[Rfam]
A member of the RNA family "Small nucleolar RNA R38" from Salmo trutta, 70 nucleotides long. Pairs were carried over by alignment from the consensus structure, which was predicted with PFOLD. Lineage of the source: Eukaryota > Eumetazoa > Actinopteri > Osteoglossocephalai > Salmo. The family has 19 seed sequences and 2,295 matches in Rfam 15.1. About the family: snoR38 is a C/D box small nucleolar RNA conserved across yeast, human, Arabidopsis and rice. A reference for the family is Bachellerie et al. (1995), "Antisense snoRNAs: a family of nucleolar RNAs with long complementarities to rRNA", Trends Biochem Sci.

RNA sequence: ACAAGCCUGUGAUGAAACAAGUUAUCCCUGUCUGAACAAGUGUUGACUUACUGAAACCCCUGAGGCUUGA
Numbered sequence: 001a002c003a004a005g006c007c008u009g010u011g012a013u014g015a016a017a018c019a020a021g022u023u024a025u026c027c028c029u030g031u032c033u034g035a036a037c038a039a040g041u042g043u044u045g046a047c048u049u050a051c052u053g054a055a056a057c058c059c060c061u062g063a064g065g066c067u068u069g070a
Stems, first nucleotide, its partner, number of pairs: 002069006
Dot-bracket structure: .((((((........................................................)))))).